[Rfam]
The record is a 134-nucleotide RNA from Molossus molossus, which matches "U11 spliceosomal RNA" in Rfam. The literature on the family includes a 1988 paper in Proc Natl Acad Sci U S A by Montzka and Steitz, "Additional low-abundance human small nuclear ribonucleoproteins: U11, U12, etc". The match comes from Rfam's covariance-model search (84 bits). The family's consensus secondary structure is taken from published work. It is annotated as a spliceosomal small nuclear RNA. Taxonomically the source falls in Molossus (Eukaryota, Bilateria, Laurasiatheria, Yangochiroptera).

RNA sequence: AAAGAGAACUUCUAUCCUGAGUGGCACAUGUAGGGCAACAUGAUUGCUCUACAUGCAAAAUCGACUUUAAGAGAUUUUGGAAGCGUAAUUUUUUGGUAUCUGGGCAACUGGUGAUUGUUGGUCCUGGCGUAUGU
Numbered sequence: 001a002a003a004g005a006g007a008a009c010u011u012c013u014a015u016c017c018u019g020a021g022u023g024g025c026a027c028a029u030g031u032a033g034g035g036c037a038a039c040a041u042g043a044u045u046g047c048u049c050u051a052c053a054u055g056c057a058a059a060a061u062c063g064a065c066u067u068u069a070a071g072a073g074a075u076u077u078u079g080g081a082a083g084c085g086u087a088a089u090u091u092u093u094u095g096g097u098a099u100c101u102g103g104g105c106a107a108c109u110g111g112u113g114a115u116u117g118u119u120g121g122u123c124c125u126g127g128c129g130u131a132u133g134u
Base pairs, nucleotide, nucleotide: 009083010082011081012080013026015024016023027055028054029053030052031051032050033049034048035047036046037045038044056079057078058077059076060075061074062073102132104130105129108127109126110125111124113123114122115121116120